The family of this 923-nucleotide RNA from Naematelia encephala is "RNase MRP".
Rfam classes the family as a ribozyme.
Taxonomically the source falls in Naematelia (Eukaryota, Basidiomycota, Tremellomycetes, Naemateliaceae).
It scores 68 bits against the family's covariance model.
RNase MRP is an enzymatically active ribonucleoprotein with two distinct roles in eukaryotes. In mitochondria it plays a direct role in the initiation of mitochondrial DNA replication. In the nucleus it is involved in precursor rRNA processing, where it cleaves the internal transcribed spacer 1 between 18S and 5.8S rRNAs. Despite distinct functions, RNase MRP has been shown to be evolutionarily related to RNase P. Like eukaryotic RNase P, RNase MRP is not catalytically active without associated protein subunits.
Clan: RNaseP clan.
[Rfam]
RNA sequence: CGCUCAGCACAAGAAUCGCUCGUCGCAGCACACGAACGAGAUGGCGAGUAUUCAGUCUCGCCCAUCCUCAAUCGCGCUGUGGGUGAAAGUCCCCGGAGCCUUCGUUCCGCUUUUUGAGUUUUGCCCGCCUUACUCCUCCAUGACGUUCAUUCAACCUUCUUUAGACGGAAACUGGACGUUCGCUUGCAGACUCUGAGUACUACUAGUCGGUAUCUGGCGUUGCCAGAGGAAGCCUCUGAUACUGGCUUCGGAGGAGAGCUGGAGAUCAGGAAAGCACUUGUACCUGAGAAUACGAGACGAUCUCUAGUAAUCCCGAGAAGCUGGCCAGUGGUGGACGAAGCUACAACGGGCCGACGGACGGCUCAGAUUACAGUCUGUUGGGCUCUCUACAAUUUCCGUUCUUUUGGGUGGCUUGACUCAAACGACUGGGAUCGAGUUGGUGAUCGAGUAGGACAUUGAAGCUGUUUGGCCCGGACCGCAAGGACGACCACUCUUCGUCCUUCUUGGCAGCGCUCAUGCGCUUUUCCGCCUCAUCUUCUCCCUUGCGCGACAAUGGCGCCACUUCCAAUCAACUCGCAUCCUGCCUCACAAGCUCGGAUAGGGUGUGUGCUUACUCAAUAGCUGGGGUGACGGUGAUGCGCGAAGAGACGAGCCAUCAUCCUCUCGCCCUGUUUAUUGGGUAACUCACAUACUUCGCUGAAACUUUCGGCUAGCCGUGUUUUGCGCUGUGCGGAAUGCUUUCAAGUGAUGGAGCAAGUGUGUUGUCGUUGUCCUCCAGUGGAUUGGCUCUGUGAUGGAUGAAUCGCAAGGAAGCAGGUACGGACUAAAUGUUCGCUCAUAGUUACAGUAAUGCGAUUACCCGCACGGCUUCGACCCUUGUCGUUGCUGAGGGUAACUCGAUGGGGCUUACUCUGUGUCUGGGC
Numbered sequence: 001c002g003c004u005c006a007g008c009a010c011a012a013g014a015a016u017c018g019c020u021c022g023u024c025g026c027a028g029c030a031c032a033c034g035a036a037c038g039a040g041a042u043g044g045c046g047a048g049u050a051u052u053c054a055g056u057c058u059c060g061c062c063c064a065u066c067c068u069c070a071a072u073c074g075c076g077c078u079g080u081g082g083g084u085g086a087a088a089g090u091c092c093c094c095g096g097a098g099c100c101u102u103c104g105u106u107c108c109g110c111u112u113u114u115u116g117a118g119u120u121u122u123g124c125c126c127g128c129c130u131u132a133c134u135c136c137u138c139c140a141u142g143a144c145g146u147u148c149a150u151u152c153a154a155c156c157u158u159c160u161u162u163a164g165a166c167g168g169a170a171a172c173u174g175g176a177c178g179u180u181c182g183c184u185u186g187c188a189g190a191c192u193c194u195g196a197g198u199a200c201u202a203c204u205a206g207u208c209g210g211u212a213u214c215u216g217g218c219g220u221u222g223c224c225a226g227a228g229g230a231a232g233c234c235u236c237u238g239a240u241a242c243u244g245g246c247u248u249c250g251g252a253g254g255a256g257a258g259c260u261g262g263a264g265a266u267c268a269g270g271a272a273a274g275c276a277c278u279u280g281u282a283c284c285u286g287a288g289a290a291u292a293c294g295a296g297a298c299g300a301u302c303u304c305u306a307g308u309a310a311u312c313c314c315g316a317g318a319a320g321c322u323g324g325c326c327a328g329u330g331g332u333g334g335a336c337g338a339a340g341c342u343a344c345a346a347c348g349g350g351c352c353g354a355c356g357g358a359c360g361g362c363u364c365a366g367a368u369u370a371c372a373g374u375c376u377g378u379u380g381g382g383c384u385c386u387c388u389a390c391a392a393u394u395u396c397c398g399u400u401c402u403u404u405u406g407g408g409u410g411g412c413u414u415g416a417c418u419c420a421a422a423c424g425a426c427u428g429g430g431a432u433c434g435a436g437u438u439g440g441u442g443a444u445c446g447a448g449u450a451g452g453a454c455a456u457u458g459a460a461g462c463u464g465u466u467u468g469g470c471c472c473g474g475a476c477c478g479c480a481a482g483g484a485c486g487a488c489c490a491c492u493c494u495u496c497g498u499c500c501u502u503c504u505u506g507g508c509a510g511c512g513c514u515c516a517u518g519c520g521c522u523u524u525u526c527c528g529c530c531u532c533a534u535c536u537u538c539u540c541c542c543u544u545g546c547g548c549g550a551c552a553a554u555g556g557c558g559c560c561a562c563u564u565c566c567a568a569u570c571a572a573c574u575c576g577c578a579u580c581c582u583g584c585c586u587c588a589c590a591a592g593c594u595c596g597g598a599u600a601g602g603g604u605g606u607g608u609g610c611u612u613a614c615u616c617a618a619u620a621g622c623u624g625g626g627g628u629g630a631c632g633g634u635g636a637u638g639c640g641c642g643a644a645g646a647g648a649c650g651a652g653c654c655a656u657c658a659u660c661c662u663c664u665c666g667c668c669c670u671g672u673u674u675a676u677u678g679g680g681u682a683a684c685u686c687a688c689a690u691a692c693u694u695c696g697c698u699g700a701a702a703c704u705u706u707c708g709g710c711u712a713g714c715c716g717u718g719u720u721u722u723g724c725g726c727u728g729u730g731c732g733g734a735a736u737g738c739u740u741u742c743a744a745g746u747g748a749u750g751g752a753g754c755a756a757g758u759g760u761g762u763u764g765u766c767g768u769u770g771u772c773c774u775c776c777a778g779u780g781g782a783u784u785g786g787c788u789c790u791g792u793g794a795u796g797g798a799u800g801a802a803u804c805g806c807a808a809g810g811a812a813g814c815a816g817g818u819a820c821g822g823a824c825u826a827a828a829u830g831u832u833c834g835c836u837c838a839u840a841g842u843u844a845c846a847g848u849a850a851u852g853c854g855a856u857u858a859c860c861c862g863c864a865c866g867g868c869u870u871c872g873a874c875c876c877u878u879g880u881c882g883u884u885g886c887u888g889a890g891g892g893u894a895a896c897u898c899g900a901u902g903g904g905g906c907u908u909a910c911u912c913u914g915u916g917u918c919u920g921g922g923c
Stems, first nucleotide, its partner, number of pairs: 002923006008916004014857006023082007087908003091905004721828001726822006736815003746805004788798004859892003863888002